[Rfam]
RNA sequence: UCUAGAGCUCAAGAUAUGGGCUGAACACUGAAUAGUGUCUAGGCUGCAGAACAGAUUCAGACUUCUUCGUUGUUCCUAUAAUUUGGACUUCAAACGGCCUUUUUAAAUCUUGGGCUCCCAUGAAAGUUGUAGGCCUAUGUCUCACCUUUCCAUC
Number, nucleotide and partner (000 for none) at each position: 001u000002c000003u152004a000005g150006a149007g148008c000009u144010c000011a000012a142013g141014a140015u139016a138017u137018g136019g135020g134021c132022u131023g130024a000025a128026c000027a127028c126029u125030g000031a000032a000033u000034a000035g121036u120037g119038u000039c000040u000041a000042g117043g116044c000045u114046g000047c000048a111049g110050a000051a108052c000053a000054g104055a103056u000057u000058c000059a000060g098061a000062c097063u096064u000065c000066u000067u000068c000069g091070u000071u000072g088073u087074u086075c000076c000077u000078a000079u000080a000081a000082u000083u000084u000085g000086g074087a073088c072089u000090u000091c069092a000093a000094a000095c000096g063097g062098c060099c000100u000101u000102u000103u055104u054105a000106a000107a000108u051109c000110u049111u048112g000113g000114g045115c000116u043117c042118c000119c037120a036121u035122g000123a000124a000125a029126g028127u027128u025129g000130u023131a022132g021133g000134c020135c019136u018137a017138u016139g015140u014141c013142u012143c000144a009145c000146c000147u000148u007149u006150c005151c000152a003153u000154c000

Rfam assigns this 154-nucleotide sequence from Populus tomentosa to the family "MIR2912 microRNA precursor family". The base pairs follow the family's consensus structure, which was predicted with RNAalifold. The source organism's lineage runs through Eukaryota, Viridiplantae, Euphyllophyta, Magnoliopsida and Populus. Gene Ontology terms of the family: miRNA-mediated post-transcriptional gene silencing and RISC complex. It scores 105 bits against the family's covariance model.